The family of this 378-nucleotide part of an RNA from Chlamydia felis is "Bacterial large subunit ribosomal RNA". Clan: LSU clan. On this family, see Yusupov et al., Science 2001: "Crystal structure of the ribosome at 5.5 A resolution". The source organism's lineage runs through Bacteria, Chlamydiia, Chlamydiales, Chlamydiaceae and Chlamydia.
RNA sequence: GAUAAAGGAAGUGAAAAUCUUCCUCGCCGUAAGCACAAGGUUUCCAGGGUCAAGCUCGUCUUCCCUGGGUUAGUCGGCCCCUAAGUCGAGGCACAAAUGCGUAGACGAUGGAGCAACAGGUUAAAUAUUCCUGUACCACCUAAAACUUUAGCAAUGGAAUGACGGAGUACGUUAAGCACGCGGACGAUUGGAAAUGUCCGUAUCACAAUGAGACUGGUUAGUAGGUAAAUCCGCUAACAUAAGGUUAGGUUGUGGUUAAGGGAAAUCUUCGGAGGAACUGAUAGUGUAGCGCAAUGCUUUCAAGAAAUAAUUUCUAGCUGUUGAUGGUGACCGUACCUAAACCGACACAGGUGUGCGAGAUGAAUAUUCUAAGGCGCG
Numbered sequence: 001g002a003u004a005a006a007g008g009a010a011g012u013g014a015a016a017a018u019c020u021u022c023c024u025c026g027c028c029g030u031a032a033g034c035a036c037a038a039g040g041u042u043u044c045c046a047g048g049g050u051c052a053a054g055c056u057c058g059u060c061u062u063c064c065c066u067g068g069g070u071u072a073g074u075c076g077g078c079c080c081c082u083a084a085g086u087c088g089a090g091g092c093a094c095a096a097a098u099g100c101g102u103a104g105a106c107g108a109u110g111g112a113g114c115a116a117c118a119g120g121u122u123a124a125a126u127a128u129u130c131c132u133g134u135a136c137c138a139c140c141u142a143a144a145a146c147u148u149u150a151g152c153a154a155u156g157g158a159a160u161g162a163c164g165g166a167g168u169a170c171g172u173u174a175a176g177c178a179c180g181c182g183g184a185c186g187a188u189u190g191g192a193a194a195u196g197u198c199c200g201u202a203u204c205a206c207a208a209u210g211a212g213a214c215u216g217g218u219u220a221g222u223a224g225g226u227a228a229a230u231c232c233g234c235u236a237a238c239a240u241a242a243g244g245u246u247a248g249g250u251u252g253u254g255g256u257u258a259a260g261g262g263a264a265a266u267c268u269u270c271g272g273a274g275g276a277a278c279u280g281a282u283a284g285u286g287u288a289g290c291g292c293a294a295u296g297c298u299u300u301c302a303a304g305a306a307a308u309a310a311u312u313u314c315u316a317g318c319u320g321u322u323g324a325u326g327g328u329g330a331c332c333g334u335a336c337c338u339a340a341a342c343c344g345a346c347a348c349a350g351g352u353g354u355g356c357g358a359g360a361u362g363a364a365u366a367u368u369c370u371a372a373g374g375c376g377c378g
Stems, first nucleotide, its partner, number of pairs: 006024006025376004033356004039337002044068006053061002075333003080111002085106003089102001091100003116134005137329004144322003151318002156314005164300004171292002176287004181200005201258002205253004212246003217238006224232002261279002266274001342351002358370003